This 100-nucleotide RNA belongs to the Rfam family "L4-Archaeoglobi ribosomal protein leades".
[Rfam]
RNA sequence: CUGAUGGGCGCGUCUGGGUCAAUUGCGGACUGCAACACCCACUCUCUCUCCCCGUCCCGAACGGGAUGGAACUCACGGAGGGAGACCGCGUUUCCGUCAG
Numbered sequence: 001c002u003g004a005u006g007g008g009c010g011c012g013u014c015u016g017g018g019u020c021a022a023u024u025g026c027g028g029a030c031u032g033c034a035a036c037a038c039c040c041a042c043u044c045u046c047u048c049u050c051c052c053c054g055u056c057c058c059g060a061a062c063g064g065g066a067u068g069g070a071a072c073u074c075a076c077g078g079a080g081g082g083a084g085a086c087c088g089c090g091u092u093u094c095c096g097u098c099a100g
Stems, first nucleotide, its partner, number of pairs: 001100005008091005015041004023035005043085009
Annotation: Rfam classes the family as a cis-regulatory leader. The family's consensus secondary structure is taken from published work.